Shown here is an 85-nucleotide RNA from Coptis chinensis, a member of the family "mir-156 microRNA precursor family".
Lineage of the source: Eukaryota > Embryophyta > Spermatophyta > Ranunculaceae > Coptis.
The family has 10 seed sequences and 1,401 matches in Rfam 15.1.
Pairs were carried over by alignment from the consensus structure, which was predicted with PFOLD.
A search with the family's covariance model found it, with a score of 78 bits.
About the family: This family represents the plant microRNA (miRNA) precursor mir-156.

[Rfam]
RNA sequence: GUGACAGAAGAGAGUGAGCACACAUGGUUUUUUCUUGCAUGAUGUGCAUGCUUGAAGCUCUUUGUGCUCACUUUCUAUCUGUCAC
Numbered sequence: 001g002u003g004a005c006a007g008a009a010g011a012g013a014g015u016g017a018g019c020a021c022a023c024a025u026g027g028u029u030u031u032u033u034c035u036u037g038c039a040u041g042a043u044g045u046g047c048a049u050g051c052u053u054g055a056a057g058c059u060c061u062u063u064g065u066g067c068u069c070a071c072u073u074u075c076u077a078u079c080u081g082u083c084a085c
Stems, first nucleotide, its partner, number of pairs: 001085008010075012024061001